Background:
The family of this 109-nucleotide RNA sequence is "SAM-I/IV (S-adenosyl methionine) riboswitch aptamer". On this family, see Weinberg et al., RNA 2008: "The aptamer core of SAM-IV riboswitches mimics the ligand-binding site of SAM-I riboswitches". Rfam links the family to the GO terms regulation of gene expression and S-adenosylmethionine metabolic process.
RNA sequence: ACAAGGCAUCCAGAGUGAGCGGAAGCUCCGCCAACCUGCCCAAGCGGUAAGGUGGCUGCCCGCGUAAGCGGGGAUGCGGUCGAUUCUCGACAAUCCGAGGGAUCUCCAC
Dot-bracket structure: .....(((((....(.((((....)))))(((..((((((..[.[))).))).)))................))))).((((.....)))).........].]......